[Rfam]
RNA sequence: UCUGGGGUCUGGCCUAACAGAGCAGCCACCACCUCAGA
Numbered sequence: 001u002c003u004g005g006g007g008u009c010u011g012g013c014c015u016a017a018c019a020g021a022g023c024a025g026c027c028a029c030c031a032c033c034u035c036a037g038a
Base pairs, nucleotide, nucleotide: 001038002037003036004035005034006033007032008031010028011027012026013025